[Rfam]
RNA sequence: GAAUUUCACUAGGGGAGCCUAUGGCUGAGAUGGAACUUCUGUUCUAAACCCUUUGAACCUGAUCUGGAUUAUACCAGCGGAGGGAAGUGGAGAGAGCCUAUG
Numbered sequence: 001g002a003a004u005u006u007c008a009c010u011a012g013g014g015g016a017g018c019c020u021a022u023g024g025c026u027g028a029g030a031u032g033g034a035a036c037u038u039c040u041g042u043u044c045u046a047a048a049c050c051c052u053u054u055g056a057a058c059c060u061g062a063u064c065u066g067g068a069u070u071a072u073a074c075c076a077g078c079g080g081a082g083g084g085a086a087g088u089g090g091a092g093a094g095a096g097c098c099u100a101u102g
Base pairs, nucleotide, nucleotide: 006090007089008088009087010086011052012051013050014049017025018024019023032045033044034043035042036041058083059082060081064077065076066075067074
This 102-nucleotide RNA from Bacillus methanolicus belongs to the Rfam family "TPP riboswitch aptamer (THI element)".
Taxonomically the source falls in Bacillus methanolicus (Bacteria, Bacillota, Bacilli, Bacillaceae).